Source information: The family of this 189-nucleotide sequence from Atlantibacter hermannii is "Gammaproteobacterial sRNA STnc100". By type it is a small RNA.
RNA sequence: UUUGACAGUCAUAAAAAUGAAAAAAUGAUGGCGAAUCCCCCUGAGCGGAGGGGCAUUACUGGAUACUCUGUAAUUGCAACAGCAUGCGAAGCGCUGCAUCCAGUCAGCGUUUCACCGGGAGGCACCCGGCACCGUCGAGAGAUGUUCUUCCUGAUAUGACCUGUUCGUCCGAGCAGGUCUUUUUUUGCC
Numbered sequence: 001u002u003u004g005a006c007a008g009u010c011a012u013a014a015a016a017a018u019g020a021a022a023a024a025a026u027g028a029u030g031g032c033g034a035a036u037c038c039c040c041c042u043g044a045g046c047g048g049a050g051g052g053g054c055a056u057u058a059c060u061g062g063a064u065a066c067u068c069u070g071u072a073a074u075u076g077c078a079a080c081a082g083c084a085u086g087c088g089a090a091g092c093g094c095u096g097c098a099u100c101c102a103g104u105c106a107g108c109g110u111u112u113c114a115c116c117g118g119g120a121g122g123c124a125c126c127c128g129g130c131a132c133c134g135u136c137g138a139g140a141g142a143u144g145u146u147c148u149u150c151c152u153g154a155u156a157u158g159a160c161c162u163g164u165u166c167g168u169c170c171g172a173g174c175a176g177g178u179c180u181u182u183u184u185u186u187g188c189c
Base pairs, nucleotide, nucleotide: 010144011143026137027136028135029134030133031132033130038053039052040051041050042049060078061077082087088113089112090111091110094107095106096105115129116128117127118126119125153189155187156186158179159178160177161176162175163174164173165172
The source organism's lineage runs through Bacteria, Pseudomonadati, Pseudomonadota, Gammaproteobacteria and Atlantibacter hermannii.